[Rfam]
RNA sequence: AAUGUAUUCGACUAUAUUCGACUGUAUUCACGGCGUGAAACAAGGGAUUACACUAUUUUUGAACGGACAGUGAAUCAAUUAACAUAAUAGACUCUU
Numbered sequence: 001a002a003u004g005u006a007u008u009c010g011a012c013u014a015u016a017u018u019c020g021a022c023u024g025u026a027u028u029c030a031c032g033g034c035g036u037g038a039a040a041c042a043a044g045g046g047a048u049u050a051c052a053c054u055a056u057u058u059u060u061g062a063a064c065g066g067a068c069a070g071u072g073a074a075u076c077a078a079u080u081a082a083c084a085u086a087a088u089a090g091a092c093u094c095u096u
Base pairs, nucleotide, nucleotide: 002095004093009090011088013086014085015084017082018081020080021079023077024076026075027074028073029072030071031070034065035064036063037059038058039057040056042054